Record summary
Small nucleolar RNA SNORD111: an 81-nucleotide RNA sequence from Cariama cristata. By type it is a C/D-box small nucleolar RNA. Pairs were carried over by alignment from the consensus structure, which was predicted with RNAalifold. On this family, see Galardi et al., Mol Cell Biol 2002: "Purified box C/D snoRNPs are able to reproduce site-specific 2'-O-methylation of target RNA in vitro". The organism belongs to Cariama, within Eukaryota.
[Rfam]
RNA sequence: UAGCCUGAAGUGAUGAGCUUGGUUCAUGUCUCUUCUCUGAGGUUUAUGCUGGAGAUAACUCCAAAGACUCUGAUCAGGCUC
Numbered sequence: 001u002a003g004c005c006u007g008a009a010g011u012g013a014u015g016a017g018c019u020u021g022g023u024u025c026a027u028g029u030c031u032c033u034u035c036u037c038u039g040a041g042g043u044u045u046a047u048g049c050u051g052g053a054g055a056u057a058a059c060u061c062c063a064a065a066g067a068c069u070c071u072g073a074u075c076a077g078g079c080u081c
Base pairs, nucleotide, nucleotide: 002080003079004078005077